[Rfam]
RNA sequence: GGAUAUCACUUUUUGCUAUCCCCGGCUAAUAAUGCAAUGACACGUAAGAUAACUUUUUCAUGUGUUAUUGUAUUAUUGACCGGAGAUAGCAAAACAAUGUUAUCC
Numbered sequence: 001g002g003a004u005a006u007c008a009c010u011u012u013u014u015g016c017u018a019u020c021c022c023c024g025g026c027u028a029a030u031a032a033u034g035c036a037a038u039g040a041c042a043c044g045u046a047a048g049a050u051a052a053c054u055u056u057u058u059c060a061u062g063u064g065u066u067a068u069u070g071u072a073u074u075a076u077u078g079a080c081c082g083g084a085g086a087u088a089g090c091a092a093a094a095c096a097a098u099g100u101u102a103u104c105c
Stems, first nucleotide, its partner, number of pairs: 002104004011094009022083004027078019047058003
A member of the RNA family "MIR6274 microRNA precursor family" from Prunus avium, 105 nucleotides long. Rfam 15.1 lists 342 matches to the family in 8 species. A search with the family's covariance model found it, with a score of 85 bits.